This 132-nucleotide RNA from Chelydra serpentina belongs to the Rfam family "Small nucleolar RNA SNORD94". The family's RNA type in Rfam is C/D-box small nucleolar RNA. Rfam 15.1 lists 802 matches to the family in 622 species. A reference for the family is Galardi et al. (2002), "Purified box C/D snoRNPs are able to reproduce site-specific 2'-O-methylation of target RNA in vitro", Mol Cell Biol.
RNA sequence: UCGGCAAUGAUGAUUGGCGCAGGGGUACGGACCUCAGCUGCAUUAUGGGAGCUGAAUGUAAAUGUUUUUGUCCUGCAUGUGGUGGGAAAAGUGAGAACAUUUACAUGAGACUUGUGCCUACAUCUGAGCUGC
Numbered sequence: 001u002c003g004g005c006a007a008u009g010a011u012g013a014u015u016g017g018c019g020c021a022g023g024g025g026u027a028c029g030g031a032c033c034u035c036a037g038c039u040g041c042a043u044u045a046u047g048g049g050a051g052c053u054g055a056a057u058g059u060a061a062a063u064g065u066u067u068u069u070g071u072c073c074u075g076c077a078u079g080u081g082g083u084g085g086g087a088a089a090a091g092u093g094a095g096a097a098c099a100u101u102u103a104c105a106u107g108a109g110a111c112u113u114g115u116g117c118c119u120a121c122a123u124c125u126g127a128g129c130u131g132c
Stems, first nucleotide, its partner, number of pairs: 002131004